The family of this 205-nucleotide RNA sequence from Pantoea alhagi is "GcvB RNA". A search with the family's covariance model found it, with a score of 128 bits. By type it is a non-coding RNA gene. On this family, see Urbanowski et al., Mol Microbiol 2000: "The gcvB gene encodes a small untranslated RNA involved in expression of the dipeptide and oligopeptide transport systems in Escherichia coli". Rfam's curators write: The gcvB gene encodes a small untranslated RNA involved in expression of the dipeptide and oligopeptide transport systems in Escherichia coli. Included several unknown homologues in alignment (Bateman A pers obs). It base-pairs with SorC. This interaction triggers the degradation of GcvB by RNase E, alleviating the GcvB-mediated mRNA repression of other amino acid-related transport and metabolic genes. The base pairs follow the family's consensus structure, which is taken from published work.
RNA sequence: ACUUCCUGAGCCGGAACGAAAAGUUUUCAGAAUAGGUAGGAAACUACUGAUUUCAGAGGGCUUUUGGCUUGUGGUCGUGAUGUUGUGUUUGCAAUUUGAUCUGACGCUUUUCAGAUCGGGUAGCCUGGCUACCUUUUAUUCCUGUAGAUUUACCCUGUCUGUCCAUAGUGAUUUUAAUAGCACCGCAUAAGCGGUGCUUUUUUUU
Numbered sequence: 001a002c003u004u005c006c007u008g009a010g011c012c013g014g015a016a017c018g019a020a021a022a023g024u025u026u027u028c029a030g031a032a033u034a035g036g037u038a039g040g041a042a043a044c045u046a047c048u049g050a051u052u053u054c055a056g057a058g059g060g061c062u063u064u065u066g067g068c069u070u071g072u073g074g075u076c077g078u079g080a081u082g083u084u085g086u087g088u089u090u091g092c093a094a095u096u097u098g099a100u101c102u103g104a105c106g107c108u109u110u111u112c113a114g115a116u117c118g119g120g121u122a123g124c125c126u127g128g129c130u131a132c133c134u135u136u137u138a139u140u141c142c143u144g145u146a147g148a149u150u151u152a153c154c155c156u157g158u159c160u161g162u163c164c165a166u167a168g169u170g171a172u173u174u175u176a177a178u179a180g181c182a183c184c185g186c187a188u189a190a191g192c193g194g195u196g197c198u199u200u201u202u203u204u205u
Stems, first nucleotide, its partner, number of pairs: 009069004015065002021063008030054003097118008119133006148178003179198008